Source information:
Shown here is a 76-nucleotide RNA sequence from Jaculus jaculus, a member of the family "mir-3473 microRNA precursor family".

[Rfam]
RNA sequence: ACCACUAAGCCAUCCCUCCAGCCCAGAAUGCUGUUUUUAAAAAGAGAUAUUUGGGCUGGAGGGAUGGCUUAGUGGU
Numbered sequence: 001a002c003c004a005c006u007a008a009g010c011c012a013u014c015c016c017u018c019c020a021g022c023c024c025a026g027a028a029u030g031c032u033g034u035u036u037u038u039a040a041a042a043a044g045a046g047a048u049a050u051u052u053g054g055g056c057u058g059g060a061g062g063g064a065u066g067g068c069u070u071a072g073u074g075g076u
Stems, first nucleotide, its partner, number of pairs: 002075023
Dot-bracket structure: .(((((((((((((((((((((((............................))))))))))))))))))))))).